[Rfam]
RNA sequence: CCUGAUUUUCGUGUCCAACGUUGGACCAUCCAUCUUAUUUAAAAAAAUAUGAAAAAAAAAAUAAAAAGACAAGUCACGUAUAAAAUAUUAAUCAUGUUUUAUCAUUUAACAACAAUAAAAAUACGAAUUAUAAAAAAAUAUCAUAUAAGACGGACAGUCAAAGUUGGACACGAAAACCCAGGGUUUGCCUUUUU
Numbered sequence: 001c002c003u004g005a006u007u008u009u010c011g012u013g014u015c016c017a018a019c020g021u022u023g024g025a026c027c028a029u030c031c032a033u034c035u036u037a038u039u040u041a042a043a044a045a046a047a048u049a050u051g052a053a054a055a056a057a058a059a060a061a062u063a064a065a066a067a068g069a070c071a072a073g074u075c076a077c078g079u080a081u082a083a084a085a086u087a088u089u090a091a092u093c094a095u096g097u098u099u100u101a102u103c104a105u106u107u108a109a110c111a112a113c114a115a116u117a118a119a120a121a122u123a124c125g126a127a128u129u130a131u132a133a134a135a136a137a138a139u140a141u142c143a144u145a146u147a148a149g150a151c152g153g154a155c156a157g158u159c160a161a162a163g164u165u166g167g168a169c170a171c172g173a174a175a176a177c178c179c180a181g182g183g184u185u186u187g188c189c190u191u192u193u194u
Base pairs, nucleotide, nucleotide: 014168015167016166017165018164019163021162022161024159025158026157029154030153031152033150034149035148036147037146038145
The family of this 194-nucleotide sequence from Oryza rufipogon is "MIR812 microRNA precursor family".
The family has 22 seed sequences and 57,451 matches in Rfam 15.1.
The match comes from Rfam's covariance-model search (101 bits).
The base pairs follow the family's consensus structure, which was predicted with RNAalifold.